This 76-nucleotide RNA from Sporobacter termitidis belongs to the Rfam family "c-di-GMP-I riboswitch aptamer". The base pairs follow the family's consensus structure, which is taken from published work. GEMM was predicted in a large-scale screen for bacterial structured RNA regulatory elements. Its family is annotated with cyclic-di-GMP binding in the Gene Ontology.
[Rfam]
RNA sequence: UUCAAUAUCCAGCAAAAUAGCCGAAAGGUUAUGACGCAAAGCUAAAGGGCCUUUUACAUGGCAGCCAGUUGCAUAA
Numbered sequence: 001u002u003c004a005a006u007a008u009c010c011a012g013c014a015a016a017a018u019a020g021c022c023g024a025a026a027g028g029u030u031a032u033g034a035c036g037c038a039a040a041g042c043u044a045a046a047g048g049g050c051c052u053u054u055u056a057c058a059u060g061g062c063a064g065c066c067a068g069u070u071g072c073a074u075a076a
Stems, first nucleotide, its partner, number of pairs: 012037002017032006040070004047066002049062003
Dot-bracket structure: ...........((...((((((....))))))...))..((((...(((((........)))..))))))......